[Rfam]
RNA: L31-Actinobacteria ribosomal protein leader
RNA sequence: GCGGUACCGGUUCACGCCCGCGGCCACAGGCAGGCGGCGAGGCGACCCGGCGACC
Numbered sequence: 001g002c003g004g005u006a007c008c009g010g011u012u013c014a015c016g017c018c019c020g021c022g023g024c025c026a027c028a029g030g031c032a033g034g035c036g037g038c039g040a041g042g043c044g045a046c047c048c049g050g051c052g053a054c055c
Stems, first nucleotide, its partner, number of pairs: 003055003007050004015044004019039003